[Rfam]
Shown here is a 106-nucleotide RNA from Mesobacillus zeae, a member of the family "SAM riboswitch aptamer (S box leader)".
RNA sequence: GACUUAUCAAGAGUGACCGAGGGAACAGGCCCUAUGACGUCCGGCAACCUCUUUUUUAGGAAAGGUGCUACAUCCUGUAGAAUGACUUCAUUCUGGAAGAUAAGCU
Numbered sequence: 001g002a003c004u005u006a007u008c009a010a011g012a013g014u015g016a017c018c019g020a021g022g023g024a025a026c027a028g029g030c031c032c033u034a035u036g037a038c039g040u041c042c043g044g045c046a047a048c049c050u051c052u053u054u055u056u057u058a059g060g061a062a063a064g065g066u067g068c069u070a071c072a073u074c075c076u077g078u079a080g081a082a083u084g085a086c087u088u089c090a091u092u093c094u095g096g097a098a099g100a101u102a103a104g105c106u
Stems, first nucleotide, its partner, number of pairs: 001106001003104006013042001015041003021032003026077004043069004048065002050061004073098001078095006